[Rfam]
RNA sequence: AGAGCGUUAUGAUGAUGGUUAAAUCCCAAGUGUCUAGCUCUAGUUUCUCCUGGGCUGAGUCCCAGGAGA
Numbered sequence: 001a002g003a004g005c006g007u008u009a010u011g012a013u014g015a016u017g018g019u020u021a022a023a024u025c026c027c028a029a030g031u032g033u034c035u036a037g038c039u040c041u042a043g044u045u046u047c048u049c050c051u052g053g054g055c056u057g058a059g060u061c062c063c064a065g066g067a068g069a
Stems, first nucleotide, its partner, number of pairs: 002040004011034003017027002046069009